[Rfam]
RNA sequence: GGGCGGAACCGGGCCCCUCUGGCGCGGCGCACUGGCCGGAAAUGGCAGUACGCCUCGUGAUGUCGGACCGCAUCG
Numbered sequence: 001g002g003g004c005g006g007a008a009c010c011g012g013g014c015c016c017c018u019c020u021g022g023c024g025c026g027g028c029g030c031a032c033u034g035g036c037c038g039g040a041a042a043u044g045g046c047a048g049u050a051c052g053c054c055u056c057g058u059g060a061u062g063u064c065g066g067a068c069c070g071c072a073u074c075g
Stems, first nucleotide, its partner, number of pairs: 006069001009066004022058003026054004
Rfam assigns this 75-nucleotide RNA from Novosphingobium sp. TH158 to the family "terC RNA". It is annotated as a cis-regulatory element. The family's consensus secondary structure is taken from published work. The source organism's lineage runs through Bacteria, Pseudomonadota, Alphaproteobacteria, Sphingomonadales and Novosphingobium.